[Rfam]
RNA sequence: CGUAGAGGACCUUCUACUAAAGGCGCGCACGUCCUGUGCGCAACGUAGAAGUCACCACAUCCUGUGGA
Numbered sequence: 001c002g003u004a005g006a007g008g009a010c011c012u013u014c015u016a017c018u019a020a021a022g023g024c025g026c027g028c029a030c031g032u033c034c035u036g037u038g039c040g041c042a043a044c045g046u047a048g049a050a051g052u053c054a055c056c057a058c059a060u061c062c063u064g065u066g067g068a
Base pairs, nucleotide, nucleotide: 011051012050013049014048015047016046017045026040027039028038029037030036055067056066057065058064